[Rfam]
The record is a 265-nucleotide RNA from Firmicutes bacterium CAG:170, which matches "Bacterial large signal recognition particle RNA" in Rfam. Rfam describes the family as follows. The signal recognition particle (SRP) is a universally conserved ribonucleoprotein involved in the co-translational targeting of proteins to membranes. It is annotated as a non-coding RNA gene.
RNA sequence: CUGCACUACUCGGGGAGAUAGCGGUGCCUUGUUACCCGCAAUCCGCUAUAGCGGGGAGGAAAUCCCGACCGAGGGUGCGUAUUGUAUCGUCUGACCCAUAUAAGCGGCGUUGAAGAUUCGGUCUUACGCAACGGGGCCCUGUGAACCGUGUCAGGUGGGGAACCAAGCAGCACUAAGCAGCCCACCCCGUGUGCCGUGAGGCAGCCGUUUCCGAGCUGGCUGUAUGGGUAACGGGUGUAGUGCGCAUUCGAAGAAGGGUGUGCAG
Dot-bracket structure: ((((((..(((((((.(.(...).).))))....(((((...........)))))))).....(((..(...(((((.((((((((((...((..((((((..(((((......((..((((((((((((.(((((..((((.....((((....(((....)))....))))...))))....)))))))...))))))...))))..))...))).)).)))))).))...)))))))))).)))))...)..))).))))))